[Rfam]
RNA sequence: AGUUGUGUUCAGGGGAGCCAUUGGCUGAGAGGAUCAGAAGAUCGACCCUUUGAACCUGACCCGGGUAAUGCCGGCGGAGGGAGAAGAUGGAUACAACAU
Numbered sequence: 001a002g003u004u005g006u007g008u009u010c011a012g013g014g015g016a017g018c019c020a021u022u023g024g025c026u027g028a029g030a031g032g033a034u035c036a037g038a039a040g041a042u043c044g045a046c047c048c049u050u051u052g053a054a055c056c057u058g059a060c061c062c063g064g065g066u067a068a069u070g071c072c073g074g075c076g077g078a079g080g081g082a083g084a085a086g087a088u089g090g091a092u093a094c095a096a097c098a099u
Stems, first nucleotide, its partner, number of pairs: 006087001008085003011049004017025003032043004055080003061074004
Dot-bracket structure: .....(.(((((((..(((...)))......((((....))))..)))).....(((...((((......))))...)))..))).)............
RNA: TPP riboswitch aptamer (THI element)